[Rfam]
RNA sequence: UCGUAAGUCGCUGCCGGUCAUCUGCUUGCAGCGGCGAGCUUCGUUCGUCCCAUAUGGAUGUGACGAGGUUUCACCAGAAAAAGGAA
Dot-bracket structure: ......((((((((..((.....))..))))))))(((((((((((((((.....))))).))))))))))...............
RNA: gyrA RNA
Organism: Pseudomonas sp. 1239